The record is a 252-nucleotide RNA from Enterovirus alphacoxsackie, which matches "Picornavirus internal ribosome entry site (IRES)" in Rfam. On this family, see Liu et al., Virology 1999: "Structural and functional analysis of the 5' untranslated region of coxsackievirus B3 RNA: In vivo translational and infectivity studies of full-length mutants". From the family's description: This family represents the Picornavirus internal ribosome entry site (IRES).

[Rfam]
RNA sequence: AUAGGACGCUCUAAUACGGACAUGGUGCGAAGAGUCUAUUGAGCUAGUUGGUAGUAGUCCGGCCCCUGAAUGCGGCUAAUCCUAACUGCGGAGCGCGCGCCCCCAUUCCAGGAGGUAGCGCGUCGUAACGGGCAACUCUGCAGCGGAACCGACUACUUUGGGUGUCCGUGUUUCCUUUUAUCUUUAUUCUGGCUGCUUAUGGUGACAAUUGACAGAUUGUUACCAUAUAGCUAUUGGAUUGGCCAUCCGGUC
Numbered sequence: 001a002u003a004g005g006a007c008g009c010u011c012u013a014a015u016a017c018g019g020a021c022a023u024g025g026u027g028c029g030a031a032g033a034g035u036c037u038a039u040u041g042a043g044c045u046a047g048u049u050g051g052u053a054g055u056a057g058u059c060c061g062g063c064c065c066c067u068g069a070a071u072g073c074g075g076c077u078a079a080u081c082c083u084a085a086c087u088g089c090g091g092a093g094c095g096c097g098c099g100c101c102c103c104c105a106u107u108c109c110a111g112g113a114g115g116u117a118g119c120g121c122g123u124c125g126u127a128a129c130g131g132g133c134a135a136c137u138c139u140g141c142a143g144c145g146g147a148a149c150c151g152a153c154u155a156c157u158u159u160g161g162g163u164g165u166c167c168g169u170g171u172u173u174c175c176u177u178u179u180a181u182c183u184u185u186a187u188u189c190u191g192g193c194u195g196c197u198u199a200u201g202g203u204g205a206c207a208a209u210u211g212a213c214a215g216a217u218u219g220u221u222a223c224c225a226u227a228u229a230g231c232u233a234u235u236g237g238a239u240u241g242g243c244c245a246u247c248c249g250g251u252c
Stems, first nucleotide, its partner, number of pairs: 004012003020026002034196002042194005050183002060168003064162003073151003080147003086143007094122004099116003103112002123131003198227013